[Rfam]
RNA sequence: AGGGGGAGGCCGGAUCCUGGGCUGUGUCCCGGUGCCCUGUGCUCCCGGGCCUGUGCUGUUGGAUUCGCCCUCCCACCUCGCAGCCCCCC
Numbered sequence: 001a002g003g004g005g006g007a008g009g010c011c012g013g014a015u016c017c018u019g020g021g022c023u024g025u026g027u028c029c030c031g032g033u034g035c036c037c038u039g040u041g042c043u044c045c046c047g048g049g050c051c052u053g054u055g056c057u058g059u060u061g062g063a064u065u066c067g068c069c070c071u072c073c074c075a076c077c078u079c080g081c082a083g084c085c086c087c088c089c
Base pairs, nucleotide, nucleotide: 002088003087004086005085006084009081010080012077013076019073020072021071024068025067026066027063028062029061030058031057032056033055034054035053039051041050042049043048
Background: A member of the RNA family "mir-8799 microRNA precursor family" from Nyctereutes procyonoides, 89 nucleotides long. Taxonomically the source falls in Nyctereutes (Eukaryota, Eumetazoa, Craniata, Teleostomi).